[Rfam]
RNA sequence: CGUAGUUCUCAGGGCGGGGUGAAACUCCCCACCGGCGGUAACGGACAGCAAUGCCCGGAGCCCGCGAGCGCUUCCGGUUUCACGCCGGAAGGUCAGCAGAUCCGGUUGAAUUCCGGAGCCGACGGUCACAGUCCGGAUGGAAGAGAGCAAAC
Numbered sequence: 001c002g003u004a005g006u007u008c009u010c011a012g013g014g015c016g017g018g019g020u021g022a023a024a025c026u027c028c029c030c031a032c033c034g035g036c037g038g039u040a041a042c043g044g045a046c047a048g049c050a051a052u053g054c055c056c057g058g059a060g061c062c063c064g065c066g067a068g069c070g071c072u073u074c075c076g077g078u079u080u081c082a083c084g085c086c087g088g089a090a091g092g093u094c095a096g097c098a099g100a101u102c103c104g105g106u107u108g109a110a111u112u113c114c115g116g117a118g119c120c121g122a123c124g125g126u127c128a129c130a131g132u133c134c135g136g137a138u139g140g141a142a143g144a145g146a147g148c149a150a151a152c
Stems, first nucleotide, its partner, number of pairs: 003150001005148006017029003031132002033121002035065004060119002068097002101117005123135003